[Rfam]
Rfam assigns this 313-nucleotide sequence from Microtus ochrogaster to the family "7SK RNA". Rfam classes the family as a non-coding RNA gene. A search with the family's covariance model found it, with a score of 290 bits.

RNA sequence: GGAUGUGAGGGCAAUCUGGCUGCAACAUCUGUCACCUCAUUGGUUGCCAGGGUUGAUUUGGCUGAUCUGACUGGCUAGGCGGAUGUCCCCUUCCUCCCUCACUGCUCCCUGUGCGUCGCUCCAGAAGCUGCACGCUCAGUCAAAGAGGACGACCUUCCCCGAAUAGGGAGGAUUGGUCUUCGGUCAAGGGUAUACAAAUAGCUACGCUCCCCUGCUGGAACCUCCAAACAAGCUCUCAAGGUCCAUUUGUAGGAGAACGUAGGGUGUUCAAGCUUCCAAAUGAGGAGCUGCGUGUGGCGGUCUGCCUUUCUGU
Number, nucleotide and partner (000 for none) at each position: 001g108002g107003a106004u000005g102006u101007g100008a099009g098010g097011g096012c000013a000014a092015u000016c000017u000018g090019g089020c000021u000022g000023c000024a000025a086026c085027a084028u083029c082030u081031g080032u079033c078034a000035c074036c073037u070038c069039a068040u000041u000042g067043g066044u065045u064046g062047c061048c060049a000050g000051g000052g000053u000054u000055g000056a000057u000058u000059u000060g048061g047062c046063u000064g045065a044066u043067c042068u039069g038070a037071c000072u000073g036074g035075c000076u000077a000078g033079g032080c031081g030082g029083a028084u027085g026086u025087c000088c000089c019090c018091u000092u014093c000094c000095u000096c011097c010098c009099u008100c007101a006102c005103u000104g000105c000106u003107c002108c001109c000110u000111g000112u000113g000114c000115g000116u171117c170118g000119c168120u167121c166122c139123a000124g137125a136126a000127g135128c134129u000130g000131c000132a000133c000134g128135c127136u125137c124138a000139g122140u162141c161142a000143a000144a000145g000146a000147g158148g157149a156150c000151g000152a000153c000154c000155u000156u149157c148158c147159c000160c000161g141162a140163a000164u000165a000166g121167g120168g119169a000170g117171g116172a000173u000174u000175g000176g000177u000178c000179u000180u000181c000182g000183g000184u000185c000186a000187a000188g000189g000190g000191u000192a000193u000194a000195c000196a000197a000198a000199u000200a000201g273202c272203u271204a000205c000206g000207c000208u266209c000210c264211c263212c262213u261214g260215c259216u000217g000218g000219a000220a000221c000222c255223u254224c253225c252226a000227a000228a250229c249230a248231a247232g246233c000234u000235c000236u000237c000238a000239a000240g000241g000242u000243c000244c000245a000246u232247u231248u230249g229250u228251a000252g225253g224254a223255g222256a000257a000258c000259g215260u214261a213262g212263g211264g210265u000266g208267u000268u000269c000270a000271a203272g202273c201274u000275u000276c000277c000278a313279a000280a311281u000282g308283a307284g306285g305286a000287g301288c300289u299290g298291c297292g000293u000294g000295u000296g000297g291298c290299g289300g288301u287302c000303u000304g000305c285306c284307u283308u282309u000310c000311u280312g000313u278